[Rfam]
RNA sequence: UUGGUUUAAAUUAUUGUGUGUCUAUACUUAGAAAAUUGAACUCACACAAAGUAGUAGGACAUACAUUGAUUGCAUCAAA
Numbered sequence: 001u002u003g004g005u006u007u008a009a010a011u012u013a014u015u016g017u018g019u020g021u022c023u024a025u026a027c028u029u030a031g032a033a034a035a036u037u038g039a040a041c042u043c044a045c046a047c048a049a050a051g052u053a054g055u056a057g058g059a060c061a062u063a064c065a066u067u068g069a070u071u072g073c074a075u076c077a078a079a
Stems, first nucleotide, its partner, number of pairs: 001079002004076001006074001009071005015065004022057003025053005031047001

Rfam assigns this 79-nucleotide sequence from Medicago truncatula to the family "MIR5269 microRNA precursor family".